A member of the RNA family "U5 spliceosomal RNA" from Acrobeloides nanus, 118 nucleotides long. Rfam classes the family as a spliceosomal small nuclear RNA. The family has 180 seed sequences and 28,527 matches in Rfam 15.1. On this family, see Zwieb, Nucleic Acids Res 1997: "The uRNA database". U5 RNA is a component of both types of known spliceosome. The precise function of this molecule is unknown, though it is known that the 5' loop is required for splice site selection and p220 binding, and that both the 3' stem-loop and the Sm site are important for Sm protein binding and cap methylation. It scores 94 bits against the family's covariance model. The base pairs follow the family's consensus structure, which is taken from published work. The source organism's lineage runs through Eukaryota, Eumetazoa, Bilateria, Nematoda and Acrobeloides.

RNA sequence: UAUCUCUGGUUCCUCUGCAUUCAUGCGAGAAAAUCUUUCGCCUUUUACUAAAGAUUUCCGUGCAGGGGGACGAUUAUGAGUUUUACUCAAUUUUUGGAUAACUUCCUUAUGGAAGUUU
Numbered sequence: 001u002a003u004c005u006c007u008g009g010u011u012c013c014u015c016u017g018c019a020u021u022c023a024u025g026c027g028a029g030a031a032a033a034u035c036u037u038u039c040g041c042c043u044u045u046u047a048c049u050a051a052a053g054a055u056u057u058c059c060g061u062g063c064a065g066g067g068g069g070a071c072g073a074u075u076a077u078g079a080g081u082u083u084u085a086c087u088c089a090a091u092u093u094u095u096g097g098a099u100a101a102c103u104u105c106c107u108u109a110u111g112g113a114a115g116u117u118u
Base pairs, nucleotide, nucleotide: 004080005079006078009071010070011069012068013067014066015065016064017063018062019061031057032056033055034054035053036052037051038050098118100117101116102115103114104113105112